[Rfam]
RNA: UnaL2 LINE 3' element
Organism: Cyprinus carpio
RNA sequence: UAUAUCCUCAUUUGUAAGUCACUUUGGAUAAAAGCGACUGCUAAAUGACUAAAU
Numbered sequence: 001u002a003u004a005u006c007c008u009c010a011u012u013u014g015u016a017a018g019u020c021a022c023u024u025u026g027g028a029u030a031a032a033a034g035c036g037a038c039u040g041c042u043a044a045a046u047g048a049c050u051a052a053a054u
Stems, first nucleotide, its partner, number of pairs: 013043001014041003020036001022034004